A member of the RNA family "PreQ1-III (pre queuosine) riboswitch aptamer" from Gemmiger sp. An194, 93 nucleotides long. The family's consensus secondary structure is taken from published work. Rfam links the family to the GO term queuosine biosynthetic process. The literature on the family includes a 2015 paper in Proc Natl Acad Sci U S A by Liberman et al., "Structural analysis of a class III preQ1 riboswitch reveals an aptamer distant from a ribosome-binding site regulated by fast dynamics".
[Rfam]
RNA sequence: GAGCAACUUAGGAUUUUAGGCUCGCCCGGGUUUUGCCCGGGCCCACCCGUUUGGACCUGGCAGUGCCAAACGGAUAAAAUCUUUCUGCCGGAG
Number, nucleotide and partner (000 for none) at each position: 001g023002a022003g021004c020005a000006a000007c000008u000009u000010a000011g082012g081013a080014u079015u078016u077017u000018a000019g000020g004021c003022u002023c001024g042025c041026c040027c039028g038029g037030g036031u035032u000033u000034u000035g031036c030037c029038c028039g027040g026041g025042c024043c000044c000045a000046c000047c073048c072049g071050u070051u069052u068053g067054g066055a000056c000057c000058u000059g000060g000061c000062a000063g000064u000065g000066c054067c053068a052069a051070a050071c049072g048073g047074a000075u000076a000077a016078a015079a014080u013081c012082u011083u000084u000085c000086u000087g000088c000089c000090g000091g000092a000093g000